[Rfam]
RNA sequence: GGCGACCGACAGGGGAGCGCCCACAAGGGGGCGCUGAGAUUGCGCCCCAUAAGGCGCUGACCCUCGAACCUGAUCCGGCUAGCACCGGCGUAGGGAGUCGAGAUUCUCGUCAC
Numbered sequence: 001g002g003c004g005a006c007c008g009a010c011a012g013g014g015g016a017g018c019g020c021c022c023a024c025a026a027g028g029g030g031g032c033g034c035u036g037a038g039a040u041u042g043c044g045c046c047c048c049a050u051a052a053g054g055c056g057c058u059g060a061c062c063c064u065c066g067a068a069c070c071u072g073a074u075c076c077g078g079c080u081a082g083c084a085c086c087g088g089c090g091u092a093g094g095g096a097g098u099c100g101a102g103a104u105u106c107u108c109g110u111c112a113c
Base pairs, nucleotide, nucleotide: 007100008099009098010097011064012063013062014061016058017034018033019032020031021030042057043056044055045054069094070093071092072091075088076087077086078085
A member of the RNA family "TPP riboswitch aptamer (THI element)" from Sediminivirga luteola, 113 nucleotides long. The organism belongs to Sediminivirga, within Bacteria. The family's consensus secondary structure is taken from published work.